Notes
This 157-nucleotide RNA sequence from Aquamicrobium lusatiense belongs to the Rfam family "6S / SsrS RNA". It scores 86 bits against the family's covariance model. Pairs were carried over by alignment from the consensus structure, which is taken from published work. For this family Rfam cites "6S RNA regulates E. coli RNA polymerase activity" (Wassarman and Storz, Cell, 2000). The family's RNA type in Rfam is non-coding RNA gene. The source organism's lineage runs through Bacteria, Pseudomonadati, Pseudomonadota, Alphaproteobacteria and Aquamicrobium.
RNA sequence: GACGGUCUGCGCUUCCCGGCAGGAGAGACAUAUCCCCGGGGCCUUAUCGAUCUCGAAGGGAGCUGUCCCUGACCGGACCCGUGGGUCCGGACAUAUGGCGCCCACCUACUUUGUAGGUUCCCGGGAUCGACUUCUUCACCGGUCGUGUGGAUCGUCA
Numbered sequence: 001g002a003c004g005g006u007c008u009g010c011g012c013u014u015c016c017c018g019g020c021a022g023g024a025g026a027g028a029c030a031u032a033u034c035c036c037c038g039g040g041g042c043c044u045u046a047u048c049g050a051u052c053u054c055g056a057a058g059g060g061a062g063c064u065g066u067c068c069c070u071g072a073c074c075g076g077a078c079c080c081g082u083g084g085g086u087c088c089g090g091a092c093a094u095a096u097g098g099c100g101c102c103c104a105c106c107u108a109c110u111u112u113g114u115a116g117g118u119u120c121c122c123g124g125g126a127u128c129g130a131c132u133u134c135u136u137c138a139c140c141g142g143u144c145g146u147g148u149g150g151a152u153c154g155u156c157a
Stems, first nucleotide, its partner, number of pairs: 002155011015142001017141003033126004038121006058103003062099005071092001073090005